[Rfam]
RNA sequence: GGUUGAUCUGAAGGUAGCGAAUGAUCUCAAUGAAUUGUACAGUUACAGAUUGAACUCCUUGUUCUAUCCUUUCCCCCUUCUCACUACUGCAUUUGACCAGAUUUAA
Numbered sequence: 001g002g003u004u005g006a007u008c009u010g011a012a013g014g015u016a017g018c019g020a021a022u023g024a025u026c027u028c029a030a031u032g033a034a035u036u037g038u039a040c041a042g043u044u045a046c047a048g049a050u051u052g053a054a055c056u057c058c059u060u061g062u063u064c065u066a067u068c069c070u071u072u073c074c075c076c077c078u079u080c081u082c083a084c085u086a087c088u089g090c091a092u093u094u095g096a097c098c099a100g101a102u103u104u105a106a
Stems, first nucleotide, its partner, number of pairs: 001102001003100003007096002010094002014090002016085002019082002037069001039067001041065002